[Rfam]
Shown here is a 210-nucleotide sequence from Apium graveolens, a member of the family "U2 spliceosomal RNA".
Taxonomically the source falls in Apium (Eukaryota, campanulids, Apiales, Apieae).
Rfam describes the family as follows. U2 is a small nuclear RNA (snRNA) component of the spliceosome (involved in pre-mRNA splicing).

RNA sequence: UUAUUUUCUCCCUAAUUCAAUAGGCAGACUCUGUUUUAGAUCAAGUGUAGUAUAUGUUCUUAACAGUUUAUAGGUUUAAUAUCUGAUAUGUAGGCCAUUGGUUCACAUGAUAUUAAAUUAAUUUUAUAAAGGGGGGAGACUCAUCACAAUAGCUUCCUAUUGGAGUCUUUACGAGGUGCCCAAGUGUUGCACUGGCUCACCCCACCCAAA
Numbered sequence: 001u002u003a004u005u006u007u008c009u010c011c012c013u014a015a016u017u018c019a020a021u022a023g024g025c026a027g028a029c030u031c032u033g034u035u036u037u038a039g040a041u042c043a044a045g046u047g048u049a050g051u052a053u054a055u056g057u058u059c060u061u062a063a064c065a066g067u068u069u070a071u072a073g074g075u076u077u078a079a080u081a082u083c084u085g086a087u088a089u090g091u092a093g094g095c096c097a098u099u100g101g102u103u104c105a106c107a108u109g110a111u112a113u114u115a116a117a118u119u120a121a122u123u124u125u126a127u128a129a130a131g132g133g134g135g136g137a138g139a140c141u142c143a144u145c146a147c148a149a150u151a152g153c154u155u156c157c158u159a160u161u162g163g164a165g166u167c168u169u170u171a172c173g174a175g176g177u178g179c180c181c182a183a184g185u186g187u188u189g190c191a192c193u194g195g196c197u198c199a200c201c202c203c204a205c206c207c208a209a210a
Stems, first nucleotide, its partner, number of pairs: 007040003061088002064085003090106002093103004135170008149160004173203001175201004180195002183193003